[Rfam]
RNA sequence: AUAUCUAAAGGGCAAAACUGUUGAAAAGCAGUGACGCAAAGUCUCAGAUCUAAAAGCAUUUUUUGCUGACGAUGGCUGGACUGCCGUA
Numbered sequence: 001a002u003a004u005c006u007a008a009a010g011g012g013c014a015a016a017a018c019u020g021u022u023g024a025a026a027a028g029c030a031g032u033g034a035c036g037c038a039a040a041g042u043c044u045c046a047g048a049u050c051u052a053a054a055a056g057c058a059u060u061u062u063u064u065g066c067u068g069a070c071g072a073u074g075g076c077u078g079g080a081c082u083g084c085c086g087u088a
Base pairs, nucleotide, nucleotide: 012037013036017032018031019030020029021028022027040082041081042080043079045078046077047076048073049072050071055067056066057065058064
c-di-GMP-I riboswitch aptamer: an 88-nucleotide sequence from Sporolactobacillus shoreae. The base pairs follow the family's consensus structure, which is taken from published work. GEMM was predicted in a large-scale screen for bacterial structured RNA regulatory elements. Genes associated with GEMM are involved in a diverse array of functions, including chemotaxis regulation, signal transduction, secretion and chitin. Lineage of the source: Bacteria > Bacillota > Bacilli > Caryophanales > Sporolactobacillus.